This 126-nucleotide RNA sequence belongs to the Rfam family "Small nucleolar RNA SNORD22". The family's consensus secondary structure was predicted with PFOLD. The family's RNA type in Rfam is C/D-box small nucleolar RNA. Rfam's curators put it in the seed alignment. The literature on the family includes a 1996 paper in Nature by Tycowski et al., "A mammalian gene with introns instead of exons generating stable RNA products".
Nucleotides: 126
Stems, first nucleotide, its partner, number of pairs: 001125004
Number, partner (000 for none) and nucleotide at each position: 001125u002124c003123c004122c005000c006000a007000u008000g009000a010000a011000g012000a013000a014000a015000u016000g017000u018000u019000c020000a021000c022000a023000c024000g025000u026000c027000c028000u029000a030000c031000u032000u033000c034000c035000u036000g037000u038000c039000c040000u041000a042000g043000c044000u045000c046000c047000a048000g049000a050000g051000c052000c053000u054000g055000a056000a057000a058000a059000g060000g061000u062000g063000a064000a065000c066000c067000c068000a069000c070000u071000g072000g073000g074000g075000c076000u077000g078000g079000c080000u081000g082000g083000g084000g085000g086000a087000a088000a089000a090000g091000a092000g093000g094000a095000a096000a097000c098000u099000u100000u101000g102000u103000u104000c105000c106000a107000g108000a109000a110000g111000g112000a113000a114000c115000u116000g117000u118000c119000u120000g121000a122004g123003g124002g125001a126000u